RNA sequence: AACUGCCAUAAUGGCCAUGGCAGAAGUGUUCACACUGUAGCCCCUGUCAGAUUCCAACAAAUCUGCUCAAUUCUGCC
Numbered sequence: 001a002a003c004u005g006c007c008a009u010a011a012u013g014g015c016c017a018u019g020g021c022a023g024a025a026g027u028g029u030u031c032a033c034a035c036u037g038u039a040g041c042c043c044c045u046g047u048c049a050g051a052u053u054c055c056a057a058c059a060a061a062u063c064u065g066c067u068c069a070a071u072u073c074u075g076c077c
Stems, first nucleotide, its partner, number of pairs: 013042003019077007026038003048065006
The family of this 77-nucleotide sequence from Crocodylus porosus is "Mammalian CPEB3 ribozyme". Pairs were carried over by alignment from the consensus structure, which is taken from published work. NCBI's taxonomy places the organism under Eukaryota, Teleostomi, Dipnotetrapodomorpha, Sauropsida, Crocodylus.